Rfam assigns this 49-nucleotide RNA sequence from Actinomycetospora cinnamomea to the family "L31-Actinobacteria ribosomal protein leader". NCBI's taxonomy places the organism under Bacteria, Bacillati, Actinomycetes, Pseudonocardiales, Actinomycetospora. Pairs were carried over by alignment from the consensus structure, which is taken from published work. It is annotated as a cis-regulatory leader. For this family Rfam cites "Discovery of 20 novel ribosomal leader candidates in bacteria and archaea" (Eckert and Weinberg, BMC Microbiol, 2020).
RNA sequence: CAGGUUCCGGUUCACCCCGUCGGGCAUCGGCCGCGGGGACCCGGCGACC
Numbered sequence: 001c002a003g004g005u006u007c008c009g010g011u012u013c014a015c016c017c018c019g020u021c022g023g024g025c026a027u028c029g030g031c032c033g034c035g036g037g038g039a040c041c042c043g044g045c046g047a048c049c
Base pairs, nucleotide, nucleotide: 003049004048005047007044008043009042010041015038016037017036018035019034021033022032023031